[Rfam]
Rfam assigns this 199-nucleotide RNA sequence from Vandammella animalimorsus to the family "SAH (S-adenosyl-L-homocysteine) riboswitch aptamer".
RNA sequence: UUUUCCGAGGAGCGUUGCAGCAACUUGCCGCCACAGGCCCAGCGCCGGGGCAAUUGCCAGGCUCGGAAAUCCUUGACUGCCAUUGCACUGCGCGCCAUGCGCCGCGCAAGCUGCAAAUGUGGCAAUCACUGGCAUGGCGCAGCAGCGCCACGGGCCUGCGGCCCGCGAUGACCAGAUUUCGCAACGACGCUCAACCGCC
Number, nucleotide and partner (000 for none) at each position: 001u000002u069003u068004u067005c066006c065007g064008a063009g000010g000011a000012g000013c000014g000015u000016u000017g000018c000019a000020g000021c056022a055023a054024c000025u052026u000027g000028c000029c000030g000031c000032c000033a000034c000035a000036g000037g000038c000039c000040c000041a000042g000043c000044g000045c000046c000047g000048g000049g000050g000051c000052a025053a000054u023055u022056g021057c000058c000059a000060g000061g000062c000063u008064c007065g006066g005067a004068a003069a002070u000071c000072c000073u000074u000075g000076a000077c000078u000079g000080c000081c000082a000083u000084u000085g000086c000087a000088c000089u000090g000091c000092g000093c000094g000095c000096c000097a000098u000099g000100c000101g000102c000103c000104g000105c000106g000107c000108a000109a000110g000111c000112u000113g000114c000115a000116a000117a000118u000119g000120u000121g000122g000123c000124a000125a000126u000127c000128a000129c000130u000131g000132g000133c000134a000135u000136g000137g000138c000139g000140c000141a000142g000143c000144a000145g000146c000147g000148c000149c000150a000151c000152g000153g000154g000155c000156c000157u000158g000159c000160g000161g000162c000163c000164c000165g000166c000167g000168a000169u000170g000171a000172c000173c000174a000175g000176a000177u000178u000179u000180c000181g000182c000183a000184a000185c000186g000187a000188c000189g000190c000191u000192c000193a000194a000195c000196c000197g000198c000199c000